[Rfam]
RNA sequence: GUGUUUUUCAUAGUAUUAGAUUUAAGGUUAACAAUGGAAUGAGGGACUCGGCGGAGUCCCAUUUUUGUUUUU
Numbered sequence: 001g002u003g004u005u006u007u008u009c010a011u012a013g014u015a016u017u018a019g020a021u022u023u024a025a026g027g028u029u030a031a032c033a034a035u036g037g038a039a040u041g042a043g044g045g046a047c048u049c050g051g052c053g054g055a056g057u058c059c060c061a062u063u064u065u066u067g068u069u070u071u072u
Base pairs, nucleotide, nucleotide: 043060044059045058046057047056048055049054